RNA sequence: CUCUUAUCAAGAGAGGUGGAGGGACUGGCCCGAUGAAACCCGGCAACCUGCAAAAGAAAGGUGCCAAUUCCAGCAGGAUCUAUGUAUUCUGGAAGAUGAGGG
Numbered sequence: 001c002u003c004u005u006a007u008c009a010a011g012a013g014a015g016g017u018g019g020a021g022g023g024a025c026u027g028g029c030c031c032g033a034u035g036a037a038a039c040c041c042g043g044c045a046a047c048c049u050g051c052a053a054a055a056g057a058a059a060g061g062u063g064c065c066a067a068u069u070c071c072a073g074c075a076g077g078a079u080c081u082a083u084g085u086a087u088u089c090u091g092g093a094a095g096a097u098g099a100g101g102g
Stems, first nucleotide, its partner, number of pairs: 001102008013041001015040003021031003025073004042065004047061002049057001051056001069094001074091006
RNA: SAM riboswitch aptamer (S box leader)
Organism: Caloramator sp. E03